The record is a 109-nucleotide RNA sequence from Bergeriella denitrificans, which matches "AniS" in Rfam. The base pairs follow the family's consensus structure, which was predicted with CMfinder. On this family, see Fantappie et al., Mol Microbiol 2011: "A novel Hfq-dependent sRNA that is under FNR control and is synthesized in oxygen limitation in Neisseria meningitidis". By type it is a non-coding RNA gene.
RNA sequence: UUGAUGCACUUAGCGGUUAUUACGCUUCAUUUUUUGAAAUGUUUUCAUUACCUCUUUCCUCUUGAUGUGUGUGUGUUUGGGUGUGGCAAAUCAGCCACCCCCUUUUUUU
Numbered sequence: 001u002u003g004a005u006g007c008a009c010u011u012a013g014c015g016g017u018u019a020u021u022a023c024g025c026u027u028c029a030u031u032u033u034u035u036g037a038a039a040u041g042u043u044u045u046c047a048u049u050a051c052c053u054c055u056u057u058c059c060u061c062u063u064g065a066u067g068u069g070u071g072u073g074u075g076u077u078u079g080g081g082u083g084u085g086g087c088a089a090a091u092c093a094g095c096c097a098c099c100c101c102c103u104u105u106u107u108u109u
Base pairs, nucleotide, nucleotide: 002050003049004048005047006046008044012042017037018036019035079101080100081099083098084097085096086095087094